Source information:
Rfam assigns this 45-nucleotide RNA sequence from Terriglobus roseus to the family "Acido-Lenti-1 RNA". It is annotated as a small RNA. Taxonomically the source falls in Terriglobus roseus (Bacteria, Pseudomonadati, Acidobacteriota, Acidobacteriaceae).
RNA sequence: CCCAGGGCUUUGCCCUGGGCUGGGAUAACGCGGGCCUUCAGCCCG
Numbered sequence: 001c002c003c004a005g006g007g008c009u010u011u012g013c014c015c016u017g018g019g020c021u022g023g024g025a026u027a028a029c030g031c032g033g034g035c036c037u038u039c040a041g042c043c044c045g
Base pairs, nucleotide, nucleotide: 001019002018003017004016005015006014007013008012032044033043034042035041
About this RNA:
A search with the family's covariance model found it, with a score of 37 bits. The base pairs follow the family's consensus structure, which is taken from published work.